[Rfam]
RNA sequence: CCGUUCAACUCGUUUCCCCGUAAAUGGGGGAACUACGGGAG
Numbered sequence: 001c002c003g004u005u006c007a008a009c010u011c012g013u014u015u016c017c018c019c020g021u022a023a024a025u026g027g028g029g030g031a032a033c034u035a036c037g038g039g040a041g
Base pairs, nucleotide, nucleotide: 001038002037003036004035012033013032014031015030016029017028018027019026020025

THF-II riboswitch (folE RNA): a 41-nucleotide RNA from Aquibium carbonis. Taxonomically the source falls in Aquibium (Bacteria, Alphaproteobacteria, Hyphomicrobiales, Phyllobacteriaceae). For this family Rfam cites "Structural insights into translation regulation by the THF-II riboswitch" (Xu et al., Nucleic Acids Res, 2023).